RNA sequence: GCAUCUGAAUCUUUCCCGCUCAUUGCUGCGAGGUGCAGGUCCGGGGACAUGGGAUGCAAAAGCAACGCAGAGCAAAUCCAGACGGGCCUCCGUUCAAAAGAGUCUUGUCUCUACGACUCCGCAACAUUU
Numbered sequence: 001g002c003a004u005c006u007g008a009a010u011c012u013u014u015c016c017c018g019c020u021c022a023u024u025g026c027u028g029c030g031a032g033g034u035g036c037a038g039g040u041c042c043g044g045g046g047a048c049a050u051g052g053g054a055u056g057c058a059a060a061a062g063c064a065a066c067g068c069a070g071a072g073c074a075a076a077u078c079c080a081g082a083c084g085g086g087c088c089u090c091c092g093u094u095c096a097a098a099a100g101a102g103u104c105u106u107g108u109c110u111c112u113a114c115g116a117c118u119c120c121g122c123a124a125c126a127u128u129u
Stems, first nucleotide, its partner, number of pairs: 001057005013047006021039001067122002070119003080110007094101002

The record is a 129-nucleotide RNA from Anolis carolinensis, which matches "Small nucleolar RNA SNORA55" in Rfam. The family's consensus secondary structure was predicted with PFOLD. From the family's description: ACA55 is a member of the H/ACA class of snoRNA that guide the sites of modification of uridines to pseudouridines. It is annotated as an H/ACA-box small nucleolar RNA. It scores 94 bits against the family's covariance model.